Background
The family of this 51-nucleotide RNA sequence from Vacuolonema iberomarrocanum is "Nitrogen stress-induced RNA 1". The family's RNA type in Rfam is small RNA. The literature on the family includes a 2010 paper in J Mol Biol by Ionescu et al., "Heterocyst-specific transcription of NsiR1, a non-coding RNA encoded in a tandem array of direct repeats in cyanobacteria". Rfam 15.1 lists 962 matches to the family in 163 species. The match comes from Rfam's covariance-model search (50 bits). Taxonomically the source falls in Vacuolonema iberomarrocanum (Bacteria, Cyanobacteriota, Cyanophyceae, Oculatellales). The pairing is the family consensus, mapped onto this sequence.
RNA sequence: UGGUAGAUGCACCCUGAUUCAAACCCCGGAGGCGACUUCGGGGUUUUUCUU
Numbered sequence: 001u002g003g004u005a006g007a008u009g010c011a012c013c014c015u016g017a018u019u020c021a022a023a024c025c026c027c028g029g030a031g032g033c034g035a036c037u038u039c040g041g042g043g044u045u046u047u048u049c050u051u
Base pairs, nucleotide, nucleotide: 002013003012004011024043025042026041027040028039029038030037031036